Shown here is a 55-nucleotide RNA sequence from Synechococcus sp. WH 7803, a member of the family "Glutamine-II riboswitch aptamer". A reference for the family is Huang et al. (2019), "Structure and ligand binding of the glutamine-II riboswitch", Nucleic Acids Res.
Nucleotides: 055
Stems, first nucleotide, its partner, number of pairs: 004045005010019003030055006036048002
Number, partner (000 for none) and nucleotide at each position: 001000a002000c003000a004045c005044g006043u007042u008041g009000a010019g011018c012017c013000u014000u015000c016000g017012g018011g019010c020000u021000g022000c023000a024000g025000u026000u027000c028000g029000u030055u031054u032053c033052a034051c035050a036048c037047c038000a039000a040000g041008c042007a043006a044005c045004g046000g047037g048036g049000g050035u051034g052033u053032g054031a055030a